Shown here is a 310-nucleotide part of an RNA from Plasmodium yoelii, a member of the family "Eukaryotic large subunit ribosomal RNA".
RNA sequence: GGAUUGAGAGAGAAACAACGUAAUAUGGGAAUUAAUUAUUAGCUCCUUAUGGAGCGUUUUUUAAUUCCUAUUUUAUUAAAAGAAGCAUCAGUGAAUGUUAAAGUUGAAUACUUGAAUUUGGUUAAGUUUUUUUUGCAAAUAUGUAAUAUUUGUAAGAAUUUCGUGUCAUUUCUUAUAAUUGAUUUGAUAACAAUCCAUUUGUUGAUUAUUCUGUUUACUGAGGUUGUCAAAAUCUUUGAGGACUGGGUCCUUUAUUGAUUUAAGUUGCUUCUAAAAAGUACUUUCUUAACCCACUCGUCUUGAAACACGG
Numbered sequence: 001g002g003a004u005u006g007a008g009a010g011a012g013a014a015a016c017a018a019c020g021u022a023a024u025a026u027g028g029g030a031a032u033u034a035a036u037u038a039u040u041a042g043c044u045c046c047u048u049a050u051g052g053a054g055c056g057u058u059u060u061u062u063a064a065u066u067c068c069u070a071u072u073u074u075a076u077u078a079a080a081a082g083a084a085g086c087a088u089c090a091g092u093g094a095a096u097g098u099u100a101a102a103g104u105u106g107a108a109u110a111c112u113u114g115a116a117u118u119u120g121g122u123u124a125a126g127u128u129u130u131u132u133u134u135g136c137a138a139a140u141a142u143g144u145a146a147u148a149u150u151u152g153u154a155a156g157a158a159u160u161u162c163g164u165g166u167c168a169u170u171u172c173u174u175a176u177a178a179u180u181g182a183u184u185u186g187a188u189a190a191c192a193a194u195c196c197a198u199u200u201g202u203u204g205a206u207u208a209u210u211c212u213g214u215u216u217a218c219u220g221a222g223g224u225u226g227u228c229a230a231a232a233u234c235u236u237u238g239a240g241g242a243c244u245g246g247g248u249c250c251u252u253u254a255u256u257g258a259u260u261u262a263a264g265u266u267g268c269u270u271c272u273a274a275a276a277a278g279u280a281c282u283u284u285c286u287u288a289a290c291c292c293a294c295u296c297g298u299c300u301u302g303a304a305a306c307a308c309g310g
Stems, first nucleotide, its partner, number of pairs: 001292002004289009017077001020076004025071002081272007295310004
The organism belongs to Plasmodium yoelii, within Eukaryota. Gene Ontology terms of the family: structural constituent of ribosome and ribosome. The sequence is in the family's curated seed alignment.